The family of this 261-nucleotide part of an RNA from Aliterella atlantica is "Bacterial large subunit ribosomal RNA". The family's consensus secondary structure is taken from published work. A search with the family's covariance model found it, with a score of 2712 bits. Clan: LSU clan.
[Rfam]
RNA sequence: AGAGCAUUGAGAGGAGCCCUCCUUAGUACGAGAGGACCGGGAGGGACGCACCGCUGGUGUGCCAGUUAUCGUGCCAACGGUAAACGCUGGGUAGCCAAGUGCGGCGCGGAUAACCGCUGAAAGCAUCUAAGUGGGAAGCCCACCUCAAGAUGAGUGCUCUCACUACAAUAAGUAGGUAAGGUCACAGGAAGAUUACCUGUUGAUAGGCGCGAGGUGGAAGUGCAGUAAUGUAUGUAGCCGAAGCGUACUAAUAGACCGAGG
Dot-bracket structure: ((((((((..((((..(((((((...............))))))).(((((...(((....(((((((((((....))))))...)))))....))).)))))....((....(((((...........)))))....))..))))......))))))))..(((.......))).(..(((((((((.......)))))...(((((((..((.....(((((....)))))....))...)))).)))...)))).)..